RNA sequence: AUCUCUAUAAUACAGCGGUUUUUUGGUGAAGUGAGUUUGUGUAUUACGAUUACUUUAAUGUUAGUCGUUUACUUAUGCAUGUUUUCCCGGAGGGGGGUAUAGGUAUUGCACAUUACGCUUUUUGUGUUCAAUUU
Numbered sequence: 001a002u003c004u005c006u007a008u009a010a011u012a013c014a015g016c017g018g019u020u021u022u023u024u025g026g027u028g029a030a031g032u033g034a035g036u037u038u039g040u041g042u043a044u045u046a047c048g049a050u051u052a053c054u055u056u057a058a059u060g061u062u063a064g065u066c067g068u069u070u071a072c073u074u075a076u077g078c079a080u081g082u083u084u085u086c087c088c089g090g091a092g093g094g095g096g097g098u099a100u101a102g103g104u105a106u107u108g109c110a111c112a113u114u115a116c117g118c119u120u121u122u123u124g125u126g127u128u129c130a131a132u133u134u
Base pairs, nucleotide, nucleotide: 009128010127011126012125013124028121029120030119031118032117033116038112039111040110041109042108047067048066049065050064051063052062054060071104072103073102074101075100076099077098078097085096086095087094088093
The record is a 134-nucleotide RNA from Marinomonas transparens, which matches "nqrA-Marinomonas RNA" in Rfam. The family's consensus secondary structure is taken from published work. Taxonomically the source falls in Marinomonas (Bacteria, Pseudomonadati, Pseudomonadota, Oceanospirillaceae). Rfam classes the family as a small RNA.